[Rfam]
RNA sequence: AUGCCUUAAAACUUAUGAGUAAGGAAAAUUACGAUUCAGGUUGAUGCCCGAAUCCUCACUGCCAAUGUGAGACAAAUUUUUGAGCGGGUAAAGGUUACCCUCAAGGUGACCCACCUGCUUGGUGGGAUGCCUGGGAGUCACGAUCGGCCCA
Numbered sequence: 001a002u003g004c005c006u007u008a009a010a011a012c013u014u015a016u017g018a019g020u021a022a023g024g025a026a027a028a029u030u031a032c033g034a035u036u037c038a039g040g041u042u043g044a045u046g047c048c049c050g051a052a053u054c055c056u057c058a059c060u061g062c063c064a065a066u067g068u069g070a071g072a073c074a075a076a077u078u079u080u081u082g083a084g085c086g087g088g089u090a091a092a093g094g095u096u097a098c099c100c101u102c103a104a105g106g107u108g109a110c111c112c113a114c115c116u117g118c119u120u121g122g123u124g125g126g127a128u129g130c131c132u133g134g135g136a137g138u139c140a141c142g143a144u145c146g147g148c149c150c151a
Base pairs, nucleotide, nucleotide: 004024005023006022007021008020033054034053035052036051037050039048040047055071056070057069058068059067086150087149088148089147093145094144095143096142101135102134104132105131106130107129108128110126111125112124113123114122
Source information:
The family of this 151-nucleotide RNA from Carlito syrichta is "U12 minor spliceosomal RNA". A reference for the family is Tarn and Steitz (1997), "Pre-mRNA splicing: the discovery of a new spliceosome doubles the challenge", Trends Biochem Sci. Clan: U2 clan. A search with the family's covariance model found it, with a score of 114 bits. The pairing is the family consensus, mapped onto this sequence.